[Rfam]
RNA sequence: UCAGACGGCCGGGCGGUCGCGGCCCUCCUUCGGGCGGGUCGAGGAAAGUCCGGGCUCCACGACGGCAUGGCGGCGGGUAACGCCCGCCGGGGGCGACCCCAGGGAUAGCGCCACAGAAAGCAAACCGCCCGGCGAAGCCUCGUGCGGAGCAGGGUAAGGGUGAAAGGGUGGGGUAAGAGCCCACCGGGUCGCUGGUGACAGAGGCCGCAUGGCAAGCCCCGCCAGGAGCAAGACCGAAUAGGGAUUCCGCGCCGGCGCCUCUCCUUCGGGAAAGGGGCCGGUAGGGCCGCCGCCGGCCCGAGGGAUCCGGGUAGGUCGCGAGAACCGGUCCGCGAGGGCCGGUCCAGAGGAAUGAUCGCCGCGCUCCGCCCUCGGGCGGGGCGGCACAGAACCCGGCUUACAGGCCGUCUGAUCCC
Numbered sequence: 001u002c003a004g005a006c007g008g009c010c011g012g013g014c015g016g017u018c019g020c021g022g023c024c025c026u027c028c029u030u031c032g033g034g035c036g037g038g039u040c041g042a043g044g045a046a047a048g049u050c051c052g053g054g055c056u057c058c059a060c061g062a063c064g065g066c067a068u069g070g071c072g073g074c075g076g077g078u079a080a081c082g083c084c085c086g087c088c089g090g091g092g093g094c095g096a097c098c099c100c101a102g103g104g105a106u107a108g109c110g111c112c113a114c115a116g117a118a119a120g121c122a123a124a125c126c127g128c129c130c131g132g133c134g135a136a137g138c139c140u141c142g143u144g145c146g147g148a149g150c151a152g153g154g155u156a157a158g159g160g161u162g163a164a165a166g167g168g169u170g171g172g173g174u175a176a177g178a179g180c181c182c183a184c185c186g187g188g189u190c191g192c193u194g195g196u197g198a199c200a201g202a203g204g205c206c207g208c209a210u211g212g213c214a215a216g217c218c219c220c221g222c223c224a225g226g227a228g229c230a231a232g233a234c235c236g237a238a239u240a241g242g243g244a245u246u247c248c249g250c251g252c253c254g255g256c257g258c259c260u261c262u263c264c265u266u267c268g269g270g271a272a273a274g275g276g277g278c279c280g281g282u283a284g285g286g287c288c289g290c291c292g293c294c295g296g297c298c299c300g301a302g303g304g305a306u307c308c309g310g311g312u313a314g315g316u317c318g319c320g321a322g323a324a325c326c327g328g329u330c331c332g333c334g335a336g337g338g339c340c341g342g343u344c345c346a347g348a349g350g351a352a353u354g355a356u357c358g359c360c361g362c363g364c365u366c367c368g369c370c371c372u373c374g375g376g377c378g379g380g381g382c383g384g385c386a387c388a389g390a391a392c393c394c395g396g397c398u399u400a401c402a403g404g405c406c407g408u409c410u411g412a413u414c415c416c
Base pairs, nucleotide, nucleotide: 001412002411003410004409005408006407007406008405009404010403011401012360013359014358015357016356017355018354020041021040022039023038024037025036027034028033046399047398048397050396051395052394053393054392055228056227057226058225065291068224069223070222071221072220073087074086075085076084077083088102089100090099091098092097103219104218108217109216110213111212112211125159126158127155128154129153130152132150133149167185168184169183170182171181172180186208187206188205189204190203192201193200194199232317233316234315235314242308243307244306245305246304247303284299285298286297287296288295324343325342326341327340328339329338330337331336
Rfam assigns this 416-nucleotide RNA sequence from Phenylobacterium zucineum to the family "Bacterial RNase P class A". It is annotated as a ribozyme. The base pairs follow the family's consensus structure, which is taken from published work.